[Rfam]
RNA sequence: UUGGUUUGUCCUAAGUUAAACUUGUUCAACUUUGACCAAAUUUAUAAGAAAAUAUAACAACAACUAUAUCAUCAAAACAUAUUCCAUGAUGAUGGAUUCUACCAAACAAAUUUGGUAUUGUAAAUGUUGUUAUAUUUUUCUAUAAACUUGGUCAAAGUCGAACAAGUUUGACUUAGGAUAAACCAAA
Numbered sequence: 001u002u003g004g005u006u007u008g009u010c011c012u013a014a015g016u017u018a019a020a021c022u023u024g025u026u027c028a029a030c031u032u033u034g035a036c037c038a039a040a041u042u043u044a045u046a047a048g049a050a051a052a053u054a055u056a057a058c059a060a061c062a063a064c065u066a067u068a069u070c071a072u073c074a075a076a077a078c079a080u081a082u083u084c085c086a087u088g089a090u091g092a093u094g095g096a097u098u099c100u101a102c103c104a105a106a107c108a109a110a111u112u113u114g115g116u117a118u119u120g121u122a123a124a125u126g127u128u129g130u131u132a133u134a135u136u137u138u139u140c141u142a143u144a145a146a147c148u149u150g151g152u153c154a155a156a157g158u159c160g161a162a163c164a165a166g167u168u169u170g171a172c173u174u175a176g177g178a179u180a181a182a183c184c185a186a187a
Stems, first nucleotide, its partner, number of pairs: 005182005011176016031156005045142001047141006055132003059128004065122004072115005
Dot-bracket structure: ....(((((.((((((((((((((((....(((((.........(.((((((..(((.((((..((((...(((((..................................)))))...))))..)))).)))...))))))).........)))))....)))))))))))))))).))))).....

Annotation:
The record is a 187-nucleotide RNA sequence from Dichanthelium oligosanthes, which matches "MIR1435 microRNA precursor family" in Rfam. The base pairs follow the family's consensus structure, which was predicted with RNAalifold.